Notes:
This 82-nucleotide RNA sequence from Ladona fulva belongs to the Rfam family "mir-46/mir-47/mir-281 microRNA precursor family". Rfam links the family to the GO terms RISC complex and miRNA-mediated post-transcriptional gene silencing. A search with the family's covariance model found it, with a score of 69 bits. Pairs were carried over by alignment from the consensus structure, which was predicted with RNAalifold. Lineage of the source: Eukaryota > Mandibulata > Allotriocarida > Insecta > Ladona.

RNA sequence: GAGUCGUGGCUAUCAAGAGAGCUAUCCGUCGACAGUAUUGUUGAUACACUGUCAUGGAGUUGCUCUCUUUAUGGACAGGCUC
Numbered sequence: 001g002a003g004u005c006g007u008g009g010c011u012a013u014c015a016a017g018a019g020a021g022c023u024a025u026c027c028g029u030c031g032a033c034a035g036u037a038u039u040g041u042u043g044a045u046a047c048a049c050u051g052u053c054a055u056g057g058a059g060u061u062g063c064u065c066u067c068u069u070u071a072u073g074g075a076c077a078g079g080c081u082c
Stems, first nucleotide, its partner, number of pairs: 015069004020064003025058004031053003035049002